[Rfam]
Shown here is a 76-nucleotide RNA from Bauldia litoralis, a member of the family "Makes More Granules Regulator RNA (mmgR)". Lineage of the source: Bacteria > Pseudomonadota > Alphaproteobacteria > Hyphomicrobiales > Bauldia. Rfam's curators write: SuhB later renamed mmgR (makes more granules regulator) was a putative non-coding RNA found multiple times in the Agrobacterium tumefaciens genome and related alpha-proteobacteria. The literature on the family includes a 2014 paper in RNA Biol by Torres-Quesada et al., "Genome-wide profiling of Hfq-binding RNAs uncovers extensive post-transcriptional rewiring of major stress response and symbiotic regulons in Sinorhizobium meliloti". It scores 64 bits against the family's covariance model.

RNA sequence: CCGCAAUGCCCUCCUUGGGCGUUUCCUCCCUAGACUUAGGCCGUCUCGGAAACGAGCGGCCUUUUUUUUGCCUGAU
Numbered sequence: 001c002c003g004c005a006a007u008g009c010c011c012u013c014c015u016u017g018g019g020c021g022u023u024u025c026c027u028c029c030c031u032a033g034a035c036u037u038a039g040g041c042c043g044u045c046u047c048g049g050a051a052a053c054g055a056g057c058g059g060c061c062u063u064u065u066u067u068u069u070g071c072c073u074g075a076u
Stems, first nucleotide, its partner, number of pairs: 008020004039061006046055003